[Rfam]
RNA sequence: UCUUACUUAAACAACGUAAGCCCUACCUCUCAUACGUCCUUACGGCUCCUAGACCGUGCCAGAUCGAUUAAGCUAUCUGAGAAAAAC
Dot-bracket structure: ..................................((..(((((((.(....).)))))..))..)).....................
RNA: BsrC